[Rfam]
Nucleotides: 120
Stems, first nucleotide, its partner, number of pairs: 005039003009035007042073001044071006051064001084115011
Number, partner (000 for none) and nucleotide at each position: 001000g002000u003000u004000u005039g006038u007037g008000a009035g010034c011033g012032a013031c014030c015029u016000a017000c018000u019000c020000c021000u022000g023000c024000u025000a026000c027000c028000a029015a030014g031013g032012u033011c034010g035009u036000u037007c038006a039005u040000a041000g042073g043000a044071u045070c046069g047068g048067c049066a050000c051064c052000a053000c054000u055000c056000c057000u058000c059000g060000u061000g062000a063000g064051g065000c066049u067048g068047c069046u070045g071044g072000g073042u074000u075000c076000u077000u078000u079000u080000g081000g082000a083000a084115a085114a086113g087112c088111c089110u090109g091108c092107c093106g094105u095000a096000c097000c098000u099000u100000c101000u102000c103000c104000c105094g106093c107092g108091g109090c110089a111088g112087g113086c114085u115084u116000c117000u118000u119000c120000g